[Rfam]
RNA sequence: AUCACGAGGACGUGCAUCAGAAAUCACAUUGCGGCCCGAUUUGCGCCGCUGGCGCGCCGCCGGUCCCGUGCAUAUAUCGCGGAUAGGGCCCGGCUCGGCGAGACCCGGAUUCCUCAGCCCCCCAAGCCCCCUGGGUAUUGUACGGGUCGGGUCCUACUUCCAGAAAACUGUCUGACGACUCAUAGCCAGUGCCCAAGCGCUGGCUUUU
Numbered sequence: 001a002u003c004a005c006g007a008g009g010a011c012g013u014g015c016a017u018c019a020g021a022a023a024u025c026a027c028a029u030u031g032c033g034g035c036c037c038g039a040u041u042u043g044c045g046c047c048g049c050u051g052g053c054g055c056g057c058c059g060c061c062g063g064u065c066c067c068g069u070g071c072a073u074a075u076a077u078c079g080c081g082g083a084u085a086g087g088g089c090c091c092g093g094c095u096c097g098g099c100g101a102g103a104c105c106c107g108g109a110u111u112c113c114u115c116a117g118c119c120c121c122c123c124a125a126g127c128c129c130c131c132u133g134g135g136u137a138u139u140g141u142a143c144g145g146g147u148c149g150g151g152u153c154c155u156a157c158u159u160c161c162a163g164a165a166a167a168c169u170g171u172c173u174g175a176c177g178a179c180u181c182a183u184a185g186c187c188a189g190u191g192c193c194c195a196a197g198c199g200c201u202g203g204c205u206u207u208u
Base pairs, nucleotide, nucleotide: 037170038169040052043049080163082161085158087153088152089151090150091149092148093147094146095145096144097143101139102138103136104135105134106133107132108131117127118126185204186203187202188201189200190199191198192197

Bradyrhizobiaceae sRNA BjrC174: a 208-nucleotide RNA from Variibacter gotjawalensis. A reference for the family is Madhugiri et al. (2012), "Small RNAs of the Bradyrhizobium/Rhodopseudomonas lineage and their analysis", RNA Biol. The family's RNA type in Rfam is small RNA. Lineage of the source: Bacteria > Alphaproteobacteria > Hyphomicrobiales > Nitrobacteraceae > Variibacter.